[Rfam]
RNA sequence: CUGACAGAAGAGAGUGAGCACACAUGGUGCCUUUCUUGCAUGAUGAAUGAGAGAAUCCAUGCUUGAAGCUAUGUGUGCUCACUUCUCUCUCUGUCGG
Numbered sequence: 001c002u003g004a005c006a007g008a009a010g011a012g013a014g015u016g017a018g019c020a021c022a023c024a025u026g027g028u029g030c031c032u033u034u035c036u037u038g039c040a041u042g043a044u045g046a047a048u049g050a051g052a053g054a055a056u057c058c059a060u061g062c063u064u065g066a067a068g069c070u071a072u073g074u075g076u077g078c079u080c081a082c083u084u085c086u087c088u089c090u091c092u093g094u095c096g097g
Stems, first nucleotide, its partner, number of pairs: 001097008010087003013083009023073006